Rfam assigns this 87-nucleotide sequence from Paraliobacillus ryukyuensis to the family "BsrC". From the family's description: The 301 nucleotide sequence from Kouji Nakamura has been trimmed to a highly conserved ~85 nucleotide long core to form this family. The source organism's lineage runs through Bacteria, Bacillati, Bacillota, Caryophanales and Paraliobacillus. The family has 29 seed sequences and 572 matches in Rfam 15.1. Rfam classes the family as a small RNA.
RNA sequence: UUUAACCUAAACGAUAUAAGCCCUACCUCUCCUAUAUCCUUACGACUCCGUAGUCGAUCCAGUGUGAAUAAGUCUUGCUAUCGUAUG
Numbered sequence: 001u002u003u004a005a006c007c008u009a010a011a012c013g014a015u016a017u018a019a020g021c022c023c024u025a026c027c028u029c030u031c032c033u034a035u036a037u038c039c040u041u042a043c044g045a046c047u048c049c050g051u052a053g054u055c056g057a058u059c060c061a062g063u064g065u066g067a068a069u070a071a072g073u074c075u076u077g078c079u080a081u082c083g084u085a086u087g
Stems, first nucleotide, its partner, number of pairs: 035066002039062002043056005